[Rfam]
RNA sequence: GAUAGGAACCUGUCGCUACUGUGAUUGGACACUGACACAGAGUCAACUAGCCUUGGUCGGGCGGUUCUUCGCUCGGCGGAACCGGAGCGGUCCGAACCACGAGGGGGGAGGUUCGGACCGCCCGCU
Numbered sequence: 001g002a003u004a005g006g007a008a009c010c011u012g013u014c015g016c017u018a019c020u021g022u023g024a025u026u027g028g029a030c031a032c033u034g035a036c037a038c039a040g041a042g043u044c045a046a047c048u049a050g051c052c053u054u055g056g057u058c059g060g061g062c063g064g065u066u067c068u069u070c071g072c073u074c075g076g077c078g079g080a081a082c083c084g085g086a087g088c089g090g091u092c093c094g095a096a097c098c099a100c101g102a103g104g105g106g107g108g109a110g111g112u113u114c115g116g117a118c119c120g121c122c123c124g125c126u
Stems, first nucleotide, its partner, number of pairs: 001014005015051004021032003033045004058075007077084002087121012100107001

The record is a 126-nucleotide RNA from Streptomyces griseoaurantiacus, which matches "Streptomyces RNA 3920" in Rfam. The source organism's lineage runs through Bacteria, Actinomycetes, Streptomycetaceae, Streptomyces and Streptomyces griseoaurantiacus. It scores 134 bits against the family's covariance model. From the family's description: Identified by deep sequencing of transcriptome at the end of exponential growth phase. Sequencing size consistent with northern blot size. Streptomyces specific. By type it is a small RNA. A reference for the family is Vockenhuber et al. (2011), "Deep sequencing-based identification of small non-coding RNAs in Streptomyces coelicolor", RNA Biol.